Shown here is a 107-nucleotide RNA sequence from Pseudogracilibacillus auburnensis, a member of the family "c-di-GMP-I riboswitch aptamer". NCBI's taxonomy places the organism under Bacteria, Bacillati, Caryophanales, Bacillaceae, Pseudogracilibacillus. Clan: c-di-GMP_I riboswitch clan. The family's consensus secondary structure is taken from published work.
[Rfam]
RNA sequence: AAUUGAAAAAGGCAAACUAUCCGAAAGGGUAGGACGCAAAGCCAUAGGGUCUAAAGUGUAGAUGGGUAAUUAUGACUAAAAUACGCUAUGAUCGCCUGGUUACCAAU
Numbered sequence: 001a002a003u004u005g006a007a008a009a010a011g012g013c014a015a016a017c018u019a020u021c022c023g024a025a026a027g028g029g030u031a032g033g034a035c036g037c038a039a040a041g042c043c044a045u046a047g048g049g050u051c052u053a054a055a056g057u058g059u060a061g062a063u064g065g066g067u068a069a070u071u072a073u074g075a076c077u078a079a080a081a082u083a084c085g086c087u088a089u090g091a092u093c094g095c096c097u098g099g100u101u102a103c104c105a106a107u
Base pairs, nucleotide, nucleotide: 012037013036017032018031019030020029021028022027040101041100042099043098046097047096048095049092050091051090056086057085058084059083